[Rfam]
RNA sequence: UGGUUUUCCCUGCCUCCGCUCGCGGUCCGCUGGCAUUUGCCAGCAACCCGUCAAGCGUCAUAACAUAUACCACUUGCGGUAUAGCAACCAUCAAAGAUCGCAUUUGACAGUUAUGGCAAAAGGACGGCAACGUCAGCGCGUUCCGAGACGCAACGGUCGCCGACGAUAAAAUCGUAUCGAUUGAAAUCAGCGGCUCGGGGCCAUGGGAGGAUACCGGAGAUCGAUAUGACGGCAGCAGUGCCUUGGCGCUUCUGCACGAUUGCGCGGCCCGCGACCCCCGGGGUGCUGCGUCCAUCAACCAGGGAGAGUUAC
Numbered sequence: 001u002g003g004u005u006u007u008c009c010c011u012g013c014c015u016c017c018g019c020u021c022g023c024g025g026u027c028c029g030c031u032g033g034c035a036u037u038u039g040c041c042a043g044c045a046a047c048c049c050g051u052c053a054a055g056c057g058u059c060a061u062a063a064c065a066u067a068u069a070c071c072a073c074u075u076g077c078g079g080u081a082u083a084g085c086a087a088c089c090a091u092c093a094a095a096g097a098u099c100g101c102a103u104u105u106g107a108c109a110g111u112u113a114u115g116g117c118a119a120a121a122g123g124a125c126g127g128c129a130a131c132g133u134c135a136g137c138g139c140g141u142u143c144c145g146a147g148a149c150g151c152a153a154c155g156g157u158c159g160c161c162g163a164c165g166a167u168a169a170a171a172u173c174g175u176a177u178c179g180a181u182u183g184a185a186a187u188c189a190g191c192g193g194c195u196c197g198g199g200g201c202c203a204u205g206g207g208a209g210g211a212u213a214c215c216g217g218a219g220a221u222c223g224a225u226a227u228g229a230c231g232g233c234a235g236c237a238g239u240g241c242c243u244u245g246g247c248g249c250u251u252c253u254g255c256a257c258g259a260u261u262g263c264g265c266g267g268c269c270c271g272c273g274a275c276c277c278c279c280g281g282g283g284u285g286c287u288g289c290g291u292c293c294a295u296c297a298a299c300c301a302g303g304g305a306g307a308g309u310u311a312c
Stems, first nucleotide, its partner, number of pairs: 018056002024052001077123001084117002086112003091107005138151005154183006164174003192201001194199001205270003230262003248255002277304003280300002282296004
Notes
Mesorhizobail RNA 7: a 312-nucleotide RNA sequence from Mesorhizobium japonicum. By type it is a small RNA. The source organism's lineage runs through Bacteria, Alphaproteobacteria, Phyllobacteriaceae, Mesorhizobium and Mesorhizobium japonicum. From the family's description: Existence predicted via genome wide comparisons with 4 related strains. Analysed further by deep sequencing and Northern blot under various stress conditions. Expressed only under rare growth conditions: symbiosis, micro-oxygen stress, and alkali stress.